[Rfam]
A member of the RNA family "DUF3800-IX RNA", 70 nucleotides long. Rfam's curators write: Actinobacteria, Firmicutes (1 example), Nitrospirae, Proteobacteria, Verrucomicrobia (1 example). Rfam classes the family as a small RNA. The family's consensus secondary structure is taken from published work.
RNA sequence: GAUAUGUUACUCCGAAUUGUCACCGUACGGUGGCGUGGUUGGAAAAACCAACAUAGGAUAAUAAUCGAGA
Numbered sequence: 001g002a003u004a005u006g007u008u009a010c011u012c013c014g015a016a017u018u019g020u021c022a023c024c025g026u027a028c029g030g031u032g033g034c035g036u037g038g039u040u041g042g043a044a045a046a047a048c049c050a051a052c053a054u055a056g057g058a059u060a061a062u063a064a065u066c067g068a069g070a
Base pairs, nucleotide, nucleotide: 001066002065003064005063006062007061009059011058012057013056018035019034020033021032022031023030024029038052039051040050041049